Rfam assigns this 291-nucleotide RNA from Dendroctonus ponderosae to the family "Nuclear RNase P". Rfam links the family to the GO terms ribonuclease P activity, tRNA processing and ribonuclease P complex. Rfam's curators write: Ribonuclease P (RNase P) is a ubiquitous endoribonuclease, found in archaea, bacteria and eukarya as well as chloroplasts and mitochondria. Its best characterised activity is the generation of mature 5'-ends of tRNAs by cleaving the 5'-leader elements of precursor-tRNAs.
RNA sequence: GCCCGCGACAAUCUCGCACCUGGGGCUCACAUACAAUGUACUUGUUACAUCUUACGCAACGGGAAGGUCUGAGACAGGCAAUUAUCCUCUAGCCGGGGACUUGCAUAAUCGCAAGGCGAGGGAACCAGAAAUAUGCCAGUCUGGAUGCGUAAGCCUGGGAUUGUCAAUGUUUCAAUGGCAUAGGUGUCGCAUUUAGAUGGGUUGGAAACUCUCGCAGCCAGCAAUUUUAGUUCAAUCUGCGAGUUGACGAUUUAUUCGUUAAAACUCAAUUCAGACUAAUCUGUCGCGGGC
Dot-bracket structure: ((((...(((..((((((...(..((.........(((((.....))))).....))..)........[[[[[...(((.....(((((.....)))))(((((......)))))(((((((.............((..............................................................)).......))))))).)))..................))))))(((((((.....))))))).......]]]]].......)))...))))